This 80-nucleotide RNA from Schistosoma mansoni belongs to the Rfam family "mir-3492 microRNA precursor family". Rfam links the family to the GO terms RISC complex and miRNA-mediated post-transcriptional gene silencing. The organism belongs to Schistosoma, within Eukaryota.
RNA sequence: AGCUUUUUGAAUCCGCGCAGGGAUUUCGUCAGACACCAACCCAUUAGGGCUGAUUAAACUUCUAAGAUGUUGUCGAAGCA
Number, nucleotide and partner (000 for none) at each position: 001a000002g079003c078004u077005u076006u075007u000008u072009g071010a070011a068012u067013c066014c000015g000016c000017g062018c000019a000020g061021g060022g059023a000024u058025u057026u056027c000028g054029u053030c052031a000032g000033a000034c000035a000036c000037c000038a000039a000040c000041c000042c000043a000044u000045u000046a000047g000048g000049g000050c000051u000052g030053a029054u028055u000056a026057a025058a024059c022060u021061u020062c017063u000064a000065a000066g013067a012068u011069g000070u010071u009072g008073u000074c000075g006076a005077a004078g003079c002080a000